A member of the RNA family "Group II catalytic intron D1-D4-6" from Desulfonema limicola, 247 nucleotides long.
The base pairs follow the family's consensus structure.

[Rfam]
RNA sequence: UCAUGCUUAUAUUGGGUUUAGCCAACAGAUUAGCAGCGAAGUCCGAGGGCAAACCCGGUAACGGGAGUCCGAAGCCGAACAGAGUGAGGAUACAGGCCGUGUGAUUGAGCCCCGAAAAGGGUAUAGUCGUGGACAUUGGAUAAGCUCUUAAAGCAAGAGCAAAAGCCGAUGCCGUGGAGCGUGCGGAAGGCAGCAGACCUUGCAGCGAUAUGGCGAGCCGCAGGGUUUCCACCGGGGUCUGAGAGCA
Numbered sequence: 001u002c003a004u005g006c007u008u009a010u011a012u013u014g015g016g017u018u019u020a021g022c023c024a025a026c027a028g029a030u031u032a033g034c035a036g037c038g039a040a041g042u043c044c045g046a047g048g049g050c051a052a053a054c055c056c057g058g059u060a061a062c063g064g065g066a067g068u069c070c071g072a073a074g075c076c077g078a079a080c081a082g083a084g085u086g087a088g089g090a091u092a093c094a095g096g097c098c099g100u101g102u103g104a105u106u107g108a109g110c111c112c113c114g115a116a117a118a119g120g121g122u123a124u125a126g127u128c129g130u131g132g133a134c135a136u137u138g139g140a141u142a143a144g145c146u147c148u149u150a151a152a153g154c155a156a157g158a159g160c161a162a163a164a165g166c167c168g169a170u171g172c173c174g175u176g177g178a179g180c181g182u183g184c185g186g187a188a189g190g191c192a193g194c195a196g197a198c199c200u201u202g203c204a205g206c207g208a209u210a211u212g213g214c215g216a217g218c219c220g221c222a223g224g225g226u227u228u229c230c231a232c233c234g235g236g237g238u239c240u241g242a243g244a245g246c247a
Stems, first nucleotide, its partner, number of pairs: 006033002009030002013027002017025002019216001021214002037082001042078002045075001047070004054065004106241001107239001109238006129232005165191003170185003196227008205218002
The source organism's lineage runs through Bacteria, Pseudomonadati, Desulfobacteria, Desulfococcaceae and Desulfonema. It scores 83 bits against the family's covariance model. Group II introns are found in rRNA, tRNA and mRNA of organelles in fungi, plants and protists, and also in mRNA in bacteria.